[Rfam]
RNA sequence: AGGUCAUUUCAAAGAGGGCUUUUUGGGCUAUAAAACCCACAGCUCUUAACGCUGUGACCAAAGAUUGAUGUUCUUCACAGAGAAAAUCCUGCACUGUUUUGAUAGUGCUGUGUUUUUCUGAGAAGAUAACAUA
Numbered sequence: 001a002g003g004u005c006a007u008u009u010c011a012a013a014g015a016g017g018g019c020u021u022u023u024u025g026g027g028c029u030a031u032a033a034a035a036c037c038c039a040c041a042g043c044u045c046u047u048a049a050c051g052c053u054g055u056g057a058c059c060a061a062a063g064a065u066u067g068a069u070g071u072u073c074u075u076c077a078c079a080g081a082g083a084a085a086a087u088c089c090u091g092c093a094c095u096g097u098u099u100u101g102a103u104a105g106u107g108c109u110g111u112g113u114u115u116u117u118c119u120g121a122g123a124a125g126a127u128a129a130c131a132u133a
Stems, first nucleotide, its partner, number of pairs: 002059006014047007023039001026037002072126005079119004089110001091108007
Dot-bracket structure: .((((((......(((((((..(..((........)).).)))))))......))))))............(((((..((((......(.(((((((....))))))).).....))))..))))).......
Notes: Small nucleolar RNA SNORA25: a 133-nucleotide RNA. Gene Ontology terms of the family: RNA processing and nucleolus. ACA25 is a member of the H/ACA class of snoRNA that guide the sites of modification of uridines to pseudouridines.